[Rfam]
RNA sequence: UGCUACUACCAAACCCUAUCUCUACCUCCACGUGGUGACCGCUGGGAGCUCUUUCUUAACAAAAAGCUGCAGACGGAGAAGG
Numbered sequence: 001u002g003c004u005a006c007u008a009c010c011a012a013a014c015c016c017u018a019u020c021u022c023u024a025c026c027u028c029c030a031c032g033u034g035g036u037g038a039c040c041g042c043u044g045g046g047a048g049c050u051c052u053u054u055c056u057u058a059a060c061a062a063a064a065a066g067c068u069g070c071a072g073a074c075g076g077a078g079a080a081g082g
Base pairs, nucleotide, nucleotide: 015082016081017080019078021076022075024036025035026034047068048067049066050065052063053062054061

Rfam assigns this 82-nucleotide RNA sequence from Hermetia illucens to the family "drz-agam-1 ribozyme". The family has 7 seed sequences and 10,507 matches in Rfam 15.1. The base pairs follow the family's consensus structure, which is taken from published work.